The record is a 37-nucleotide RNA sequence from Actinomyces slackii, which matches "abiF RNA" in Rfam. Rfam's curators write: Actinobacteria, Bacteroidetes, Clostridia, Proteobacteria, one Clostridia phage.

[Rfam]
RNA sequence: CCCCCCAGGCCUCUGGUACACGCCCAAAUCGGGGGGU
Numbered sequence: 001c002c003c004c005c006c007a008g009g010c011c012u013c014u015g016g017u018a019c020a021c022g023c024c025c026a027a028a029u030c031g032g033g034g035g036g037u
Base pairs, nucleotide, nucleotide: 001036002035003034004033005032006031008024009023010022